[Rfam]
RNA sequence: AUGCAAAUGAUGAGGAUCAUUCCAGGUAUGAGAAGCUCGCCCAUUAACUGCGAGCGAUGUUUGCACCUCAUACUUCCAUGACUCUGAUGCAU
Numbered sequence: 001a002u003g004c005a006a007a008u009g010a011u012g013a014g015g016a017u018c019a020u021u022c023c024a025g026g027u028a029u030g031a032g033a034a035g036c037u038c039g040c041c042c043a044u045u046a047a048c049u050g051c052g053a054g055c056g057a058u059g060u061u062u063g064c065a066c067c068u069c070a071u072a073c074u075u076c077c078a079u080g081a082c083u084c085u086g087a088u089g090c091a092u
Stems, first nucleotide, its partner, number of pairs: 001092005035055006
Shown here is a 92-nucleotide sequence from Gossypium mustelinum, a member of the family "Small nucleolar RNA R72". The organism belongs to Gossypium, within Eukaryota. Rfam's curators write: snoR72 is a C/D box small nucleolar RNA, which acts as a methylation guide for 25S ribosomal RNA in Arabidopsis. Gene Ontology terms of the family: RNA processing and nucleolus. Rfam 15.1 lists 59 matches to the family in 45 species. The family's RNA type in Rfam is C/D-box small nucleolar RNA.